[Rfam]
RNA sequence: UCUCAGGGUGAACAAGCUGUCUGCGCAUGCGUUAUAAACUGUGAGACAGUGUGUCCUCCCUAAGAC
Numbered sequence: 001u002c003u004c005a006g007g008g009u010g011a012a013c014a015a016g017c018u019g020u021c022u023g024c025g026c027a028u029g030c031g032u033u034a035u036a037a038a039c040u041g042u043g044a045g046a047c048a049g050u051g052u053g054u055c056c057u058c059c060c061u062a063a064g065a066c
Base pairs, nucleotide, nucleotide: 002064003063006059007058008057010055011054013053014052017049018048019047020046021045022044025042026041027040
This 66-nucleotide sequence from Mizuhopecten yessoensis belongs to the Rfam family "mir-1994 microRNA precursor family".
The base pairs follow the family's consensus structure, which was predicted with RNAalifold.
Lineage of the source: Eukaryota > Bilateria > Mollusca > Pectinidae > Mizuhopecten.